Rfam assigns this 95-nucleotide sequence from Yellowseavirus thirtyeight to the family "wcaG RNA". The match comes from Rfam's covariance-model search (96 bits). Lineage of the source: Viruses > Duplodnaviria > Uroviricota > Yellowseavirus > Yellowseavirus thirtyeight.
Nucleotides: 095
Base pairs, nucleotide, nucleotide: 009027010026011025012024013023014022015021037050038049039048040047041046052069053068054067055066059081060080061079062078063077064076
Number, partner (000 for none) and nucleotide at each position: 001000g002000u003000a004000g005000g006000u007000u008000u009027c010026u011025u012024u013023g014022u015021u016000c017000c018000u019000a020000a021015a022014a023013c024012a025011a026010a027009g028000u029000g030000g031000u032000g033000c034000g035000g036000a037050u038049g039048g040047g041046a042000u043000a044000a045000c046041u047040c048039c049038c050037g051000c052069c053068a054067g055066g056000u057000u058000u059081c060080u061079u062078g063077u064076u065000u066055c067054c068053u069052g070000u071000a072000a073000a074000a075000g076064a077063a078062c079061a080060a081059g082000u083000g084000g085000c086000g087000u088000g089000c090000a091000u092000g093000a094000a095000c